[Rfam]
RNA sequence: CUUGGAUACGGUGACAUGGUUCCGUCUACGGUAAUGGGCAAGAUAGUGGGAGGCAUCUGUUCCUUAUCCGGUGUGUUGGUCAUCGCUCUACCUGUGCCUGUCAUCGUCAGCAAC
Dot-bracket structure: .(.(...((((.((((.(..(...............((((........(((.........)))..........))))................)..).)))).))))...).).
Potassium channel RNA editing signal: a 114-nucleotide RNA from Cylicocyclus nassatus. Pairs were carried over by alignment from the consensus structure, which is taken from published work. It scores 94 bits against the family's covariance model. The source organism's lineage runs through Eukaryota, Opisthokonta, Rhabditida, Rhabditina and Cylicocyclus. Rfam describes the family as follows. This family represents a group of sequences related to the human potassium channel Kv1.1 hairpin element which directs the efficient modification of an adenosine to inosine by an adenosine deaminase acting on RNA (ADAR). The ADAR modification causes an isoleucine/valine recoding event which lies in the ion-conducting pore of the potassium channel. It is thought that this editing event targets the process of fast inactivation and allows a more rapid recovery from inactivation at negative potentials.